[Rfam]
RNA sequence: CCCUGACAGCGUGCAUUGUGCCGCUGACCUAACCCAGACAGGAGAUCAUCAUG
Numbered sequence: 001c002c003c004u005g006a007c008a009g010c011g012u013g014c015a016u017u018g019u020g021c022c023g024c025u026g027a028c029c030u031a032a033c034c035c036a037g038a039c040a041g042g043a044g045a046u047c048a049u050c051a052u053g
Base pairs, nucleotide, nucleotide: 002042003041004040005039007026008025009024010023011022
RNA: Mu-gpT-DE RNA